[Rfam]
RNA: tRNA
Organism: Purpureocillium lilacinum
RNA sequence: GGUCGCGUGGCCCAAUGGCAAGGCGUCUGACUACGAAUCAGGAGAUCGUGGGUUCGACCCCCACCGUGACCU
Numbered sequence: 001g002g003u004c005g006c007g008u009g010g011c012c013c014a015a016u017g018g019c020a021a022g023g024c025g026u027c028u029g030a031c032u033a034c035g036a037a038u039c040a041g042g043a044g045a046u047c048g049u050g051g052g053u054u055c056g057a058c059c060c061c062c063a064c065c066g067u068g069a070c071c072u
Base pairs, nucleotide, nucleotide: 001071002070003069004068005067006066007065010024011023012022026042027041028040029039030038048064049063050062051061052060